[Rfam]
RNA sequence: CAGCAAUAAGGGCAAACUUAUAGAAAGGUAGGGGCGCAAAGCCACAGGGUCUAAAGUGCCCCCGCACUAUAACAGCAUUGAAUUGAUAUU
Numbered sequence: 001c002a003g004c005a006a007u008a009a010g011g012g013c014a015a016a017c018u019u020a021u022a023g024a025a026a027g028g029u030a031g032g033g034g035c036g037c038a039a040a041g042c043c044a045c046a047g048g049g050u051c052u053a054a055a056g057u058g059c060c061c062c063c064g065c066a067c068u069a070u071a072a073c074a075g076c077a078u079u080g081a082a083u084u085g086a087u088a089u090u
Stems, first nucleotide, its partner, number of pairs: 012037002017032005040084002043080002046078001048076001049073002056067004
c-di-GMP-I riboswitch aptamer: a 90-nucleotide RNA sequence from Thermoanaerobacteraceae bacterium SP2. The match comes from Rfam's covariance-model search (41 bits).